Notes
The record is a 98-nucleotide RNA from Lactobacillus xujianguonis, which matches "Purine riboswitch aptamer" in Rfam. Riboswitches are metabolite binding domains within certain messenger RNAs that serve as precision sensors for their corresponding targets. The base pairs follow the family's consensus structure, which is taken from published work. NCBI's taxonomy places the organism under Bacteria, Bacillati, Bacilli, Lactobacillales, Lactobacillus.
[Rfam]
RNA sequence: AGAUUAAGCCAACACAAAAUCUAUAUAACGUCGUAAUAUGGUCGACAGUUUCUACCCAUUACCCUAAAUAAUGGACUAUAGGUGAUCGCAAGUUGAGA
Numbered sequence: 001a002g003a004u005u006a007a008g009c010c011a012a013c014a015c016a017a018a019a020u021c022u023a024u025a026u027a028a029c030g031u032c033g034u035a036a037u038a039u040g041g042u043c044g045a046c047a048g049u050u051u052c053u054a055c056c057c058a059u060u061a062c063c064c065u066a067a068a069u070a071a072u073g074g075a076c077u078a079u080a081g082g083u084g085a086u087c088g089c090a091a092g093u094u095g096a097g098a
Stems, first nucleotide, its partner, number of pairs: 019083007030046004056074006